[Rfam]
RNA sequence: CACCCCAUAGGGCAAACCGGGCGAAAGCCGGGGACGCAAAGCUUCGGGUCUACAGCCUUCGGGCCAUGACAGCCGGGCCGCCGGA
Numbered sequence: 001c002a003c004c005c006c007a008u009a010g011g012g013c014a015a016a017c018c019g020g021g022c023g024a025a026a027g028c029c030g031g032g033g034a035c036g037c038a039a040a041g042c043u044u045c046g047g048g049u050c051u052a053c054a055g056c057c058u059u060c061g062g063g064c065c066a067u068g069a070c071a072g073c074c075g076g077g078c079c080g081c082c083g084g085a
Stems, first nucleotide, its partner, number of pairs: 012037002017032002020029003041078003045075003048070003055064003
This 85-nucleotide RNA from Aminivibrio pyruvatiphilus belongs to the Rfam family "c-di-GMP-I riboswitch aptamer". The source organism's lineage runs through Bacteria, Synergistota, Synergistia, Aminobacteriaceae and Aminivibrio. The literature on the family includes a 2007 paper in Nucleic Acids Res by Weinberg et al., "Identification of 22 candidate structured RNAs in bacteria using the CMfinder comparative genomics pipeline". Rfam links the family to the GO term cyclic-di-GMP binding. A search with the family's covariance model found it, with a score of 72 bits.